[Rfam]
RNA sequence: ACCUUAUAUAGAUGUAGUAACGCAAGACAGUUGCGCAUCUCCCUGUAAGGUGAUGUUUUAAUAGAAGUAUAAACAACAAGUCUCAUUGUGUGGCUACGAGUCGAAAUGAGAUGAGUUUAUAUGGAAUAGGUUAACCGUAAGACCUUGAGUUGAAAAACUCUAAAAUUAAGCUAGAAAUCUCUAGUUACGGUGGA
Dot-bracket structure: ((((((((.((((((.((((((.....).)))))))))))...))))))))...............((((((((......(((((((....((.......))..)))))))...)))))))).....[[[[[.(((((((]]]]].(((((....))))).....)....(((((....))))).))))))...
IS605-orfB-I RNA: a 194-nucleotide RNA. The family's RNA type in Rfam is small RNA.